Rfam assigns this 209-nucleotide sequence from Naegleria sp. NG332 to the family "GIR1 branching ribozyme".
[Rfam]
RNA sequence: CUGUUAUUGAGGGCGUUCUAGUGUGCAAUGGGGUUCAUACCUUUAUUUGCCAAAACGGGACCUCUGUUGAGGUAUAAAAUUCUAACGAAUUGAAUAUUCCGUACUAAGGAUUUAAUCCGGAACGUCUAGAGACUACACGGCAAACCAAUUUGGUGGUAUGAAUGGAUAGUCCCUAGUGAACCAUCUAGGCAUCCCAUACAAAAUGGUUA
Numbered sequence: 001c002u003g004u005u006a007u008u009g010a011g012g013g014c015g016u017u018c019u020a021g022u023g024u025g026c027a028a029u030g031g032g033g034u035u036c037a038u039a040c041c042u043u044u045a046u047u048u049g050c051c052a053a054a055a056c057g058g059g060a061c062c063u064c065u066g067u068u069g070a071g072g073u074a075u076a077a078a079a080u081u082c083u084a085a086c087g088a089a090u091u092g093a094a095u096a097u098u099c100c101g102u103a104c105u106a107a108g109g110a111u112u113u114a115a116u117c118c119g120g121a122a123c124g125u126c127u128a129g130a131g132a133c134u135a136c137a138c139g140g141c142a143a144a145c146c147a148a149u150u151u152g153g154u155g156g157u158a159u160g161a162a163u164g165g166a167u168a169g170u171c172c173c174u175a176g177u178g179a180a181c182c183a184u185c186u187a188g189g190c191a192u193c194c195c196a197u198a199c200a201a202a203a204u205g206g207u208u209a
Stems, first nucleotide, its partner, number of pairs: 003207006011026001013024004028197006034162008049171001051169001055102004066086003103125002131167001134140001144154004173188004
NCBI's taxonomy places the organism under Eukaryota, Heterolobosea, Eutetramitea, Acrasida, Naegleria.
Gene Ontology term of the family: RNA splicing.
For this family Rfam cites "An mRNA is capped by a 2', 5' lariat catalyzed by a group I-like ribozyme" (Nielsen et al., Science, 2005).
Rfam's curators put it in the seed alignment.